[Rfam]
RNA sequence: AUCUCUUUGCCUUUUGGCUUAGAUCAAGUGUAGUAUCUGUUCUUUUCAGUGUAACAACUGAAAUGUCCUCAAUGAGGAUGUUUAUUAAGUUACAAAUCAUAUUUUUGGAAAUGACUUAGGGAGGAGAGAGAUGUAAGGGUCCCUGGUAUCCAGGGGAAGGGGUCUUAUAUGUGGCUGGGCUGUAAGUUUUGUUACGGAGA
Numbered sequence: 001a002u003c004u005c006u007u008u009g010c011c012u013u014u015u016g017g018c019u020u021a022g023a024u025c026a027a028g029u030g031u032a033g034u035a036u037c038u039g040u041u042c043u044u045u046u047c048a049g050u051g052u053a054a055c056a057a058c059u060g061a062a063a064u065g066u067c068c069u070c071a072a073u074g075a076g077g078a079u080g081u082u083u084a085u086u087a088a089g090u091u092a093c094a095a096a097u098c099a100u101a102u103u104u105u106u107g108g109a110a111a112u113g114a115c116u117u118a119g120g121g122a123g124g125a126g127a128g129a130g131a132u133g134u135a136a137g138g139g140u141c142c143c144u145g146g147u148a149u150c151c152a153g154g155g156g157a158a159g160g161g162g163u164c165u166u167a168u169a170u171g172u173g174g175c176u177g178g179g180c181u182g183u184a185a186g187u188u189u190u191g192u193u194a195c196g197g198a199g200a
Stems, first nucleotide, its partner, number of pairs: 004023003009018003044063006064080007115154003119150002122147001134145002137142001157193002160190003164186006
Overview
The family of this 200-nucleotide RNA from Lachancea waltii is "U2 spliceosomal RNA". About the family: U2 is a small nuclear RNA (snRNA) component of the spliceosome (involved in pre-mRNA splicing). Complementary binding between U2 snRNA (in an area lying towards the 5' end but 3' to hairpin I) and the branchpoint sequence (BPS) of the intron results the bulging out of an unpaired adenosine, on the BPS, which initiates a nucleophilic attack at the intronic 5' splice site, thus starting the first of two transesterification reactions that mediate splicing.